[Rfam]
RNA sequence: UCGGUUCCGGUUCACGUCUGAAGACUCGGGUCAGUGACUUCAGGCGACCCGGCGACC
Numbered sequence: 001u002c003g004g005u006u007c008c009g010g011u012u013c014a015c016g017u018c019u020g021a022a023g024a025c026u027c028g029g030g031u032c033a034g035u036g037a038c039u040u041c042a043g044g045c046g047a048c049c050c051g052g053c054g055a056c057c
Stems, first nucleotide, its partner, number of pairs: 003057003007052004015046009

Shown here is a 57-nucleotide RNA from Mycobacterium antarcticum, a member of the family "L31-Actinobacteria ribosomal protein leader". Pairs were carried over by alignment from the consensus structure, which is taken from published work. Lineage of the source: Bacteria > Actinomycetota > Mycobacteriales > Mycobacteriaceae > Mycobacterium.